[Rfam]
RNA: Plastid-psbN 5UTR RNA
RNA sequence: UUGGACUCCAUUCAAUGGUGUAGUCCCCCAUCCCGGAUCUACUUUACCAGAUUCCGAAUUU
Numbered sequence: 001u002u003g004g005a006c007u008c009c010a011u012u013c014a015a016u017g018g019u020g021u022a023g024u025c026c027c028c029c030a031u032c033c034c035g036g037a038u039c040u041a042c043u044u045u046a047c048c049a050g051a052u053u054c055c056g057a058a059u060u061u
Base pairs, nucleotide, nucleotide: 017045018044020042021041022040023039026036027035